[Rfam]
RNA sequence: AACAAUUUGUCCCUCGUCCCGCGGCAUUUUAAAAAAGUCCCGAUUUUUCUAUCCAAAAAUCGGGACUUUUUUUAAAUGCCGCGGGACGAGGGACAAAUUGUUAA
Numbered sequence: 001a002a003c004a005a006u007u008u009g010u011c012c013c014u015c016g017u018c019c020c021g022c023g024g025c026a027u028u029u030u031a032a033a034a035a036a037g038u039c040c041c042g043a044u045u046u047u048u049c050u051a052u053c054c055a056a057a058a059a060u061c062g063g064g065a066c067u068u069u070u071u072u073u074a075a076a077u078g079c080c081g082c083g084g085g086a087c088g089a090g091g092g093a094c095a096a097a098u099u100g101u102u103a104a
Stems, first nucleotide, its partner, number of pairs: 001102029031072014
mir-9261 microRNA precursor family: a 104-nucleotide RNA sequence from Pipistrellus kuhlii.